[Rfam]
Nucleotides: 075
Stems, first nucleotide, its partner, number of pairs: 001074003005070005012063001014061004020055004025050006032043001034041002
Number, partner (000 for none) and nucleotide at each position: 001074g002073g003072c004000c005070c006069a007068a008067a009066u010000u011000c012063g013000c014061a015060g016059u017058a018000a019000a020055g021054u022053a023052g024000a025050u026049u027048a028047g029046u030045a031000g032043g033000a034041u035040u036000a037000g038000c039000c040035g041034a042000c043032c044000a045030u046029a047028c048027u049026a050025a051000u052023c053022u054021a055020c056000a057000c058017u059016a060015c061014u062000u063012c064000a065000a066009g067008u068007u069006u070005g071000u072003g073002c074001c075000c